Record summary:
The family of this 75-nucleotide RNA from Ceyx cyanopectus is "Small nucleolar RNA SNORD59". Rfam links the family to the GO terms RNA processing and nucleolus. For this family Rfam cites "Purified box C/D snoRNPs are able to reproduce site-specific 2'-O-methylation of target RNA in vitro" (Galardi et al., Mol Cell Biol, 2002). By type it is a C/D-box small nucleolar RNA.
RNA sequence: CCUCCCGUGAUGAGCUCUCUCCAUGACUUUCGUUCUCCUGAGUUUGCUGAAGCCACGGAUUUCGGUCUGAGGAGG
Numbered sequence: 001c002c003u004c005c006c007g008u009g010a011u012g013a014g015c016u017c018u019c020u021c022c023a024u025g026a027c028u029u030u031c032g033u034u035c036u037c038c039u040g041a042g043u044u045u046g047c048u049g050a051a052g053c054c055a056c057g058g059a060u061u062u063c064g065g066u067c068u069g070a071g072g073a074g075g
Stems, first nucleotide, its partner, number of pairs: 001075003005071001
The source organism's lineage runs through Eukaryota, Euteleostomi, Sauropsida, Coelurosauria and Ceyx. Rfam 15.1 lists 1,355 matches to the family in 620 species.